[Rfam]
About this RNA
A member of the RNA family "MIR5272 microRNA precursor family" from Medicago truncatula, 72 nucleotides long.
Nucleotides: 072
Stems, first nucleotide, its partner, number of pairs: 011059006018052001021051002025047004030043004
Number, partner (000 for none) and nucleotide at each position: 001000u002000u003000g004000g005000a006000u007000g008000u009000g010000a011059a012058u013057u014056g015055a016054u017000g018052u019000a020000u021051g022050u023000u024000u025047g026046g027045a028044u029000a030043c031042a032041u033040u034000a035000c036000u037000a038000u039000a040033a041032g042031u043030g044028a045027u046026u047025c048000a049000u050022g051021u052018g053000g054016g055015u056014u057013g058012a059011u060000g061000u062000u063000g064000u065000u066000u067000g068000g069000a070000u071000a072000g

Notes
Its family is annotated with RISC complex and miRNA-mediated post-transcriptional gene silencing in the Gene Ontology. NCBI's taxonomy places the organism under Eukaryota, Euphyllophyta, Pentapetalae, Fabaceae, Medicago.